[Rfam]
RNA: Fluoride riboswitch aptamer (crcB RNA motif)
RNA sequence: AUAAACUAAGGUGAUGGAGUUCACCUUUAACCGCCUUUUGGCUAAUGACUCCUACAGAUAA
Numbered sequence: 001a002u003a004a005a006c007u008a009a010g011g012u013g014a015u016g017g018a019g020u021u022c023a024c025c026u027u028u029a030a031c032c033g034c035c036u037u038u039u040g041g042c043u044a045a046u047g048a049c050u051c052c053u054a055c056a057g058a059u060a061a
Stems, first nucleotide, its partner, number of pairs: 010025004016052006033042003